Shown here is an 85-nucleotide RNA sequence, a member of the family "RAGATH-18 RNA".
It is annotated as a small RNA.
Rfam's curators write: Actinobacteria, Firmicutes, Fusobacteria, Thermotogae (1 example).
RNA sequence: UCUGUGGAUCGUUAUAGCAAAUGAGAGUAGUUAGUGAUAUUCAGUAUUUGGUGUCAUGACAAAAUCAGACGGGAUGAAGCAGAAA
Numbered sequence: 001u002c003u004g005u006g007g008a009u010c011g012u013u014a015u016a017g018c019a020a021a022u023g024a025g026a027g028u029a030g031u032u033a034g035u036g037a038u039a040u041u042c043a044g045u046a047u048u049u050g051g052u053g054u055c056a057u058g059a060c061a062a063a064a065u066c067a068g069a070c071g072g073g074a075u076g077a078a079g080c081a082g083a084a085a
Stems, first nucleotide, its partner, number of pairs: 001083005009072005022067003030060003035056007